[Rfam]
RNA sequence: UAACACAUUUCACUCCCGCUAACCAAGACCUAUGGGAGGAUAAAUUACGUCUUAAUAUCCAGUAGUGAGGGAUUACUGGAAAUAAGUUUCGCA
Numbered sequence: 001u002a003a004c005a006c007a008u009u010u011c012a013c014u015c016c017c018g019c020u021a022a023c024c025a026a027g028a029c030c031u032a033u034g035g036g037a038g039g040a041u042a043a044a045u046u047a048c049g050u051c052u053u054a055a056u057a058u059c060c061a062g063u064a065g066u067g068a069g070g071g072a073u074u075a076c077u078g079g080a081a082a083u084a085a086g087u088u089u090c091g092c093a
Stems, first nucleotide, its partner, number of pairs: 013038005026052004058080007